L13-Bacteroidia ribosomal protein leader: a 76-nucleotide RNA sequence.

RNA sequence: GGGGAGGGUCUUAGACUCCCCACGAGUGUCGUGUAAAUAGUGCUUGUCUUUGGCCGGAUGGCACGGUUUGUGAAUC
Numbered sequence: 001g002g003g004g005a006g007g008g009u010c011u012u013a014g015a016c017u018c019c020c021c022a023c024g025a026g027u028g029u030c031g032u033g034u035a036a037a038u039a040g041u042g043c044u045u046g047u048c049u050u051u052g053g054c055c056g057g058a059u060g061g062c063a064c065g066g067u068u069u070g071u072g073a074a075u076c
Stems, first nucleotide, its partner, number of pairs: 001021006034070005040064003044061006